[Rfam]
RNA sequence: AUCUUAUCAAGAGCAGGUGGAGGGACUAGCCCGAUGAAACCCGGCAACCGGCGACUUUGUCGUACGGUGCUAAUUCUUGCAAGUUACCGUGCGAACAGAGACGAGGC
Numbered sequence: 001a002u003c004u005u006a007u008c009a010a011g012a013g014c015a016g017g018u019g020g021a022g023g024g025a026c027u028a029g030c031c032c033g034a035u036g037a038a039a040c041c042c043g044g045c046a047a048c049c050g051g052c053g054a055c056u057u058u059g060u061c062g063u064a065c066g067g068u069g070c071u072a073a074u075u076c077u078u079g080c081a082a083g084u085u086a087c088c089g090u091g092c093g094a095a096c097a098g099a100g101a102c103g104a105g106g107c
Base pairs, nucleotide, nucleotide: 002106003105004104005103007101008100013042016041017040018039022032023031024030026079028077029076043071044070045069046068048067049066051063052062053061075099083096084095085094
Rfam assigns this 107-nucleotide sequence from Saccharibacillus brassicae to the family "SAM riboswitch aptamer (S box leader)". The SAM riboswitch is found upstream of a number of genes which code for proteins involved in methionine or cysteine biosynthesis in Gram-positive bacteria. Its family is annotated with regulation of gene expression in the Gene Ontology. A search with the family's covariance model found it, with a score of 60 bits.